[Rfam]
RNA sequence: UGCAACUUAACGAUGAAAUCAUUACGGAUGUAAACUAUACAAAAAUCCGAGAGCGCAUAACCCCCUGUGGAUUAUUCCGUUGCCUUCCUUCUGAACCUUCUU
Numbered sequence: 001u002g003c004a005a006c007u008u009a010a011c012g013a014u015g016a017a018a019u020c021a022u023u024a025c026g027g028a029u030g031u032a033a034a035c036u037a038u039a040c041a042a043a044a045a046u047c048c049g050a051g052a053g054c055g056c057a058u059a060a061c062c063c064c065c066u067g068u069g070g071a072u073u074a075u076u077c078c079g080u081u082g083c084c085u086u087c088c089u090u091c092u093g094a095a096c097c098u099u100c101u102u
Stems, first nucleotide, its partner, number of pairs: 005099001025079004
Dot-bracket structure: ....(...................((((...............................................))))...................)...
Shown here is a 102-nucleotide RNA from Coprinopsis cinerea, a member of the family "Small nucleolar RNA Z13/snr52". The base pairs follow the family's consensus structure, which was predicted with PFOLD. Taxonomically the source falls in Coprinopsis cinerea (Eukaryota, Dikarya, Basidiomycota, Coprinopsis).